The record is a 125-nucleotide RNA sequence, which matches "Staphylococcus-1 RNA" in Rfam.

[Rfam]
RNA sequence: UCAAAUAAUCUAACAACUUUCCUAGAAAGUCGAUUAAUUAAUCUUCAUUGAAGCUAUUAAGAGGAUUGCCCUUUGAGGUUGUAGCAAUAGUCAGUCGCACUAUGGUUAAUCAAUGCAUUAUUUGA
Numbered sequence: 001u002c003a004a005a006u007a008a009u010c011u012a013a014c015a016a017c018u019u020u021c022c023u024a025g026a027a028a029g030u031c032g033a034u035u036a037a038u039u040a041a042u043c044u045u046c047a048u049u050g051a052a053g054c055u056a057u058u059a060a061g062a063g064g065a066u067u068g069c070c071c072u073u074u075g076a077g078g079u080u081g082u083a084g085c086a087a088u089a090g091u092c093a094g095u096c097g098c099a100c101u102a103u104g105g106u107u108a109a110u111c112a113a114u115g116c117a118u119u120a121u122u123u124g125a
Base pairs, nucleotide, nucleotide: 001125002124003123004122005121006120007119008118009117016030017029018028019027020026032111033110034109035108036107037106038105040067041066042065043064044063045062046061053085054084055083056082057081087103088102089101090100091099
It is annotated as a small RNA. Rfam's curators put it in the seed alignment. The base pairs follow the family's consensus structure, which is taken from published work.